RNA sequence: GCAGUAACCAUCAAUGAAUUUCGUAUAACCCUGCGGAUAGGGCGCGGGGGUCUCUACCAGGUUCCGCAAAAUCCUGAUUACGAAAACAGACCGGCCGCAU
Numbered sequence: 001g002c003a004g005u006a007a008c009c010a011u012c013a014a015u016g017a018a019u020u021u022c023g024u025a026u027a028a029c030c031c032u033g034c035g036g037a038u039a040g041g042g043c044g045c046g047g048g049g050g051u052c053u054c055u056a057c058c059a060g061g062u063u064c065c066g067c068a069a070a071a072u073c074c075u076g077a078u079u080a081c082g083a084a085a086a087c088a089g090a091c092c093g094g095c096c097g098c099a100u
Base pairs, nucleotide, nucleotide: 019085020084021083022082023081024080025079029049030048031047032046033045034044035043058076059075060074061073063071

This 100-nucleotide RNA from Ferrimonas marina belongs to the Rfam family "Purine riboswitch aptamer". The source organism's lineage runs through Bacteria, Pseudomonadati, Alteromonadales, Ferrimonadaceae and Ferrimonas. Pairs were carried over by alignment from the consensus structure, which is taken from published work.